[Rfam]
Annotation:
A member of the RNA family "Actinobacteria sRNA Ms_IGR-5" from Phytohabitans rumicis, 201 nucleotides long. The organism belongs to Phytohabitans, within Bacteria.
RNA sequence: ACACGGGAAGGGAGGUGGUCCGGCUUUGUAUAGCAAUGGGACUCGUGAGGUGGCUGUCCGCUAGCCGCUGUCCUUGACAGACACGUCGUCGAGACCGUGUGGCAGCGGUGCGGCGAAAAUCAAGUCAGCCACCCGACCCCGGGGCAACCGGCCCAGUCCAGCCGGCCCGCGCAGCGCGCGGAACCCCGGGGGUCGACCAUA
Numbered sequence: 001a002c003a004c005g006g007g008a009a010g011g012g013a014g015g016u017g018g019u020c021c022g023g024c025u026u027u028g029u030a031u032a033g034c035a036a037u038g039g040g041a042c043u044c045g046u047g048a049g050g051u052g053g054c055u056g057u058c059c060g061c062u063a064g065c066c067g068c069u070g071u072c073c074u075u076g077a078c079a080g081a082c083a084c085g086u087c088g089u090c091g092a093g094a095c096c097g098u099g100u101g102g103c104a105g106c107g108g109u110g111c112g113g114c115g116a117a118a119a120u121c122a123a124g125u126c127a128g129c130c131a132c133c134c135g136a137c138c139c140c141g142g143g144g145c146a147a148c149c150g151g152c153c154c155a156g157u158c159c160a161g162c163c164g165g166c167c168c169g170c171g172c173a174g175c176g177c178g179c180g181g182a183a184c185c186c187c188g189g190g191g192g193u194c195g196a197c198c199a200u201a
Stems, first nucleotide, its partner, number of pairs: 014058006059115004064111002067106004072101001074099001134195007142187003148165005